Nucleotides: 129
Base pairs, nucleotide, nucleotide: 006112007111008110009109010108041107042106044105045104046103047102048061049060050059051058052057068127069126070125071124072123073122076090077089078088079087091117092116093115094114095113
Number, partner (000 for none) and nucleotide at each position: 001000a002000a003000a004000u005000a006112u007111c008110u009109a010108g011000g012000c013000c014000a015000u016000c017000c018000a019000g020000a021000a022000g023000u024000g025000g026000u027000g028000u029000a030000a031000u032000a033000c034000a035000c036000c037000g038000a039000c040000c041107a042106u043000c044105c045104u046103a047102g048061u049060a050059c051058a052057c053000g054000a055000a056000a057052g058051u059050g060049u061048a062000g063000g064000a065000u066000g067000a068127u069126a070125u071124c072123c073122u074000g075000a076090a077089a078088g079087g080000u081000g082000a083000g084000a085000a086000a087079c088078c089077u090076u091117a092116c093115u094114u095113u096000g097000u098000a099000a100000a101000g102047c103046u104045a105044g106042g107041u108010c109009u110008g111007g112006a113095g114094g115093a116092g117091u118000u119000a120000g121000a122073a123072g124071g125070a126069u127068a128000g129000u

This 129-nucleotide RNA sequence belongs to the Rfam family "EGFOA RNA". It is one of the family's seed sequences. The base pairs follow the family's consensus structure, which is taken from published work.